About this RNA:
The record is a 122-nucleotide sequence, which matches "LOOT RNA" in Rfam. Pairs were carried over by alignment from the consensus structure, which is taken from published work. Rfam's curators put it in the seed alignment.
[Rfam]
RNA sequence: UGCCUAAACCCAUAGGGAUUCCUAUGGACAUGGCAGAAAAAUCGCAAUCAACAUAUUGAGCUCGUCAUUCAGUACGUUGAUUGCGUUGCAGGUCGAAAGGCUUGCAGGCCUCUCCGGAGGUC
Numbered sequence: 001u002g003c004c005u006a007a008a009c010c011c012a013u014a015g016g017g018a019u020u021c022c023u024a025u026g027g028a029c030a031u032g033g034c035a036g037a038a039a040a041a042u043c044g045c046a047a048u049c050a051a052c053a054u055a056u057u058g059a060g061c062u063c064g065u066c067a068u069u070c071a072g073u074a075c076g077u078u079g080a081u082u083g084c085g086u087u088g089c090a091g092g093u094c095g096a097a098a099g100g101c102u103u104g105c106a107g108g109c110c111u112c113u114c115c116g117g118a119g120g121u122c
Base pairs, nucleotide, nucleotide: 001035002034003033004032010027011026012025013024014023015022043085044084045083046082047081048080049079050078051077052076056072057071058070059069060068087106088105089104090103091102092101093100094099107122108121109120110119111118112117